[Rfam]
RNA: SAM (S-adenosyl methionine) riboswitch aptamer
Organism: Galactobacter caseinivorans
RNA sequence: AAUCAAGAGUGCGGAUCUAGAGGCCCUGGCCGAUCCGCCGGCAACCCUCGACGCGGUGUUGGGGUGCCCCAGGUGAGGAUUCGGCCCUGGCCCCGUGGCCCGGGCAAAGACCGCCU
Dot-bracket structure: ((((....(.((((((.....((......)).)))))))(((..(((.((......))...))).))).........))))..((((.((((....)))).))))...........